[Rfam]
RNA sequence: CAACCUCUGGCGAAGUACGUGAAUGUUG
Numbered sequence: 001c002a003a004c005c006u007c008u009g010g011c012g013a014a015g016u017a018c019g020u021g022a023a024u025g026u027u028g
Base pairs, nucleotide, nucleotide: 001028002027003026004025008023010020011019012018
Dot-bracket structure: ((((...(.(((.....)))..).))))
The record is a 28-nucleotide RNA sequence, which matches "L19-Flavobacteria ribosomal protein leader" in Rfam. For this family Rfam cites "Discovery of 20 novel ribosomal leader candidates in bacteria and archaea" (Eckert and Weinberg, BMC Microbiol, 2020). The family's consensus secondary structure is taken from published work.